[Rfam]
RNA sequence: UAAAACUUUUGGGGCAGGGUGUAAUUCCCGAUCGGCGGUAAAGUCCGCGAGCUGAUAGUCAGCAUGAACUGGUUAAAUUCCAGUACCGACAGUAAAGUCUGGAUGAGAGAAAGUUGUU
Numbered sequence: 001u002a003a004a005a006c007u008u009u010u011g012g013g014g015c016a017g018g019g020u021g022u023a024a025u026u027c028c029c030g031a032u033c034g035g036c037g038g039u040a041a042a043g044u045c046c047g048c049g050a051g052c053u054g055a056u057a058g059u060c061a062g063c064a065u066g067a068a069c070u071g072g073u074u075a076a077a078u079u080c081c082a083g084u085a086c087c088g089a090c091a092g093u094a095a096a097g098u099c100u101g102g103a104u105g106a107g108a109g110a111a112a113g114u115u116g117u118u
Stems, first nucleotide, its partner, number of pairs: 004115007017029003031098002033088002035048004043086002053062001068084005090101003
The family of this 118-nucleotide sequence from Clostridium thailandense is "FMN riboswitch aptamer (RFN element)". The family's consensus secondary structure is taken from published work.